[Rfam]
RNA sequence: GGUCACGAGAGUCAGCGACAAGCCCCAGCUAGCUGACCGGCAACCCUCCCUCCGCGGUGGGGUGCCCUGGGUGAGGACCAGGCCGCAUCGAAAUACUUCGGUGUUGGCAAGCGCGGGUC
Numbered sequence: 001g002g003u004c005a006c007g008a009g010a011g012u013c014a015g016c017g018a019c020a021a022g023c024c025c026c027a028g029c030u031a032g033c034u035g036a037c038c039g040g041c042a043a044c045c046c047u048c049c050c051u052c053c054g055c056g057g058u059g060g061g062g063u064g065c066c067c068u069g070g071g072u073g074a075g076g077a078c079c080a081g082g083c084c085g086c087a088u089c090g091a092a093a094u095a096c097u098u099c100g101g102u103g104u105u106g107g108c109a110a111g112c113g114c115g116g117g118u119c
Base pairs, nucleotide, nucleotide: 001079002078003077004076009038011037012036013035014034015033016032021030022029039066040065041064044062045061046060048057049056082108083107084106086103087102088101089100090099091098092097
RNA: SAM (S-adenosyl methionine) riboswitch aptamer
Organism: Kocuria sp. WRN011